[Rfam]
RNA: mir-981 microRNA precursor family
Nucleotides: 082
Stems, first nucleotide, its partner, number of pairs: 002081001004079003013070009031052004
Number, partner (000 for none) and nucleotide at each position: 001000a002081c003000u004079a005078a006077c007000a008000u009000a010000g011000u012000u013070c014069g015068g016067g017066u018065u019064u020063c021062g022000u023000g024000a025000c026000g027000a028000u029000g030000c031052a032051a033050c034049c035000u036000g037000u038000u039000a040000g041000u042000u043000a044000g045000u046000a047000a048000u049034g050033g051032u052031u053000c054000g055000u056000u057000g058000u059000c060000g061000a062021c063020g064019a065018a066017a067016c068015c069014u070013g071000a072000a073000u074000g075000g076000u077006g078005u079004u080000u081002g082000c